[Rfam]
Shown here is a 108-nucleotide sequence from Rhododendron simsii, a member of the family "Small nucleolar RNA snoR100".
On this family, see Marker et al., Curr Biol 2002: "Experimental RNomics: identification of 140 candidates for small non-messenger RNAs in the plant Arabidopsis thaliana".
Rfam links the family to the GO terms nucleolus and RNA processing.
The source organism's lineage runs through Eukaryota, Viridiplantae, eudicotyledons, Ericales and Rhododendron.
By type it is an H/ACA-box small nucleolar RNA.

RNA sequence: CAAUGAAGAAAGCAUGAUAAUGUGUACAUAAAUUGAUUUGGAUCUCUAGGCUUGUCCUCUUUAAUGCUAUUUGGUUUUGAUUUGAGGGCAUGGUUCCUCAGUAAAAAA
Numbered sequence: 001c002a003a004u005g006a007a008g009a010a011a012g013c014a015u016g017a018u019a020a021u022g023u024g025u026a027c028a029u030a031a032a033u034u035g036a037u038u039u040g041g042a043u044c045u046c047u048a049g050g051c052u053u054g055u056c057c058u059c060u061u062u063a064a065u066g067c068u069a070u071u072u073g074g075u076u077u078u079g080a081u082u083u084g085a086g087g088g089c090a091u092g093g094u095u096c097c098u099c100a101g102u103a104a105a106a107a108a
Stems, first nucleotide, its partner, number of pairs: 012025004040091001043088002050081001052079001054075003